The family of this 103-nucleotide sequence from Streptococcus pneumoniae is "Streptococcus sRNA SpF41". Rfam's curators put it in the seed alignment. The source organism's lineage runs through Bacteria, Bacillota, Bacilli, Streptococcus and Streptococcus pneumoniae. On this family, see Mann et al., PLoS Pathog 2012: "Control of virulence by small RNAs in Streptococcus pneumoniae". It is annotated as a small RNA. Pairs were carried over by alignment from the consensus structure, which was predicted with mfold.
[Rfam]
RNA sequence: AAAGCACAAUGAGUAGUAUAUAGGGAUUGCACCUUAAUUGAGGAGAUUCCGGUUCGAAUCCGGGCUAUUGUGCUAGCAUCUAGGAAACUAGGUGCUUUUUGUU
Numbered sequence: 001a002a003a004g005c006a007c008a009a010u011g012a013g014u015a016g017u018a019u020a021u022a023g024g025g026a027u028u029g030c031a032c033c034u035u036a037a038u039u040g041a042g043g044a045g046a047u048u049c050c051g052g053u054u055c056g057a058a059u060c061c062g063g064g065c066u067a068u069u070g071u072g073c074u075a076g077c078a079u080c081u082a083g084g085a086a087a088c089u090a091g092g093u094g095c096u097u098u099u100u101g102u103u
Base pairs, nucleotide, nucleotide: 003074004073005072006071007070008069009068012066013065032043033042034041035040048064049063050062051061052060076095077094078093079092080091081090082089083088